[Rfam]
This 77-nucleotide RNA sequence from Hibiscus syriacus belongs to the Rfam family "Small nucleolar RNA R12". Rfam 15.1 lists 992 matches to the family in 220 species. Gene Ontology terms of the family: nucleolus and RNA processing. It is annotated as a C/D-box small nucleolar RNA. The base pairs follow the family's consensus structure, which was predicted with PFOLD. From the family's description: snoR12 is a C/D box small nucleolar RNA, which acts as a methylation guide for 25S ribosomal RNA in plants. snoR12 has been alternatively named snoZ44 in Arabidopsis and snoZ131 in rice.
RNA sequence: UAGAGGAUGAUGAAAAAGAUCAGACGGAUUCCCAUUGAUUUAUUCCAUGAGAACAGUACCAGCUACUUCUGACUCUU
Numbered sequence: 001u002a003g004a005g006g007a008u009g010a011u012g013a014a015a016a017a018g019a020u021c022a023g024a025c026g027g028a029u030u031c032c033c034a035u036u037g038a039u040u041u042a043u044u045c046c047a048u049g050a051g052a053a054c055a056g057u058a059c060c061a062g063c064u065a066c067u068u069c070u071g072a073c074u075c076u077u
Base pairs, nucleotide, nucleotide: 002076003075004074005073